Source information: Shown here is a 107-nucleotide sequence, a member of the family "Plastid-psbA-1 3UTR RNA". The family is grouped with related families in Rfam's "Plastid-psbA 3UTR RNA clan". By type it is a cis-regulatory element. The sequence is in the family's curated seed alignment. From the family's description: Plastid psbA-1 is a non-coding RNA (ncRNA) present in plastids.
RNA sequence: UUGAAGUCCCAUCUAUAAAUGGAUAAGAUUUUGGUCUUAGUGUAAACGAGUUUUUGAAAAUAACGGAGUAAUACCGACCCCCUUGAAAGGGGGUCGGUAUUACUCCG
Numbered sequence: 001u002u003g004a005a006g007u008c009c010c011a012u013c014u015a016u017a018a019a020u021g022g023a024u025a026a027g028a029u030u031u032u033g034g035u036c037u038u039a040g041u042g043u044a045a046a047c048g049a050g051u052u053u054u055u056g057a058a059a060a061u062a063a064c065g066g067a068g069u070a071a072u073a074c075c076g077a078c079c080c081c082c083u084u085g086a087a088a089g090g091g092g093g094u095c096g097g098u099a100u101u102a103c104u105c106c107g
Stems, first nucleotide, its partner, number of pairs: 009022004064107011076095003080091004